RNA sequence: GACGAUAAAAGCCAAACCUGUCGCGAGAUGGGGACGGAAAGCUAAGGGUCUUUUUAUUUAGUCAUAUAAAGAAAGCCGAGUUGCAAAC
Dot-bracket structure: ...........((...((((((....))))))...))..((((..((.((.......(.....)......))...)).))))......
RNA: c-di-GMP-I riboswitch aptamer
Organism: Methyloglobulus morosus